[Rfam]
RNA sequence: AAUAUGAAGUGUAAAAACACAGGUCGGUUGGUAGUCCGGUCGCAUUAGCAUAUCAACUAAUGUCAGUAACCUUCCCCCCUCGGGAUGUCCAUCACUUCAUUAUUUUUA
Numbered sequence: 001a002a003u004a005u006g007a008a009g010u011g012u013a014a015a016a017a018c019a020c021a022g023g024u025c026g027g028u029u030g031g032u033a034g035u036c037c038g039g040u041c042g043c044a045u046u047a048g049c050a051u052a053u054c055a056a057c058u059a060a061u062g063u064c065a066g067u068a069a070c071c072u073u074c075c076c077c078c079c080u081c082g083g084g085a086u087g088u089c090c091a092u093c094a095c096u097u098c099a100u101u102a103u104u105u106u107u108a
Base pairs, nucleotide, nucleotide: 004100005099006098007097008096009095010094011093022041023040024039025038026037027036042063043062044061045060046059047058073085074084075083076082

The family of this 108-nucleotide sequence from Aneurinibacillus migulanus is "azaaromatic riboswitch aptamer (yjdF RNA)". Lineage of the source: Bacteria > Bacillati > Bacillota > Paenibacillaceae > Aneurinibacillus. The family's consensus secondary structure is taken from published work.